[Rfam]
Nucleotides: 066
Base pairs, nucleotide, nucleotide: 001066002065003064004063005062014051015050017048018047019046020045021044022043029038030037
Number, partner (000 for none) and nucleotide at each position: 001066u002065u003064u004063a005062c006000u007000a008000c009000a010000u011000g012000a013000a014051g015050a016000u017048a018047u019046u020045u021044c022043u023000u024000a025000a026000a027000a028000c029038c030037a031000u032000u033000u034000u035000u036000u037030u038029g039000u040000a041000a042000u043022g044021g045020g046019a047018a048017u049000u050015u051014c052000u053000g054000a055000u056000u057000a058000a059000c060000a061000u062005g063004u064003a065002a066001a